[Rfam]
RNA sequence: UGUUAAGCAUAACUAUGUCCCAUGCAACAUUUGGGAUAUGCUUAUGCUAAAC
Numbered sequence: 001u002g003u004u005a006a007g008c009a010u011a012a013c014u015a016u017g018u019c020c021c022a023u024g025c026a027a028c029a030u031u032u033g034g035g036a037u038a039u040g041c042u043u044a045u046g047c048u049a050a051a052c
Stems, first nucleotide, its partner, number of pairs: 006048007014040003018036004022031001
The family of this 52-nucleotide RNA from Balaenoptera musculus is "mir-1302 microRNA precursor family". The match comes from Rfam's covariance-model search (63 bits). Taxonomically the source falls in Balaenoptera (Eukaryota, Vertebrata, Dipnotetrapodomorpha, Laurasiatheria). On this family, see Morin et al., Genome Res 2008: "Application of massively parallel sequencing to microRNA profiling and discovery in human embryonic stem cells". Pairs were carried over by alignment from the consensus structure, which was predicted with WAR.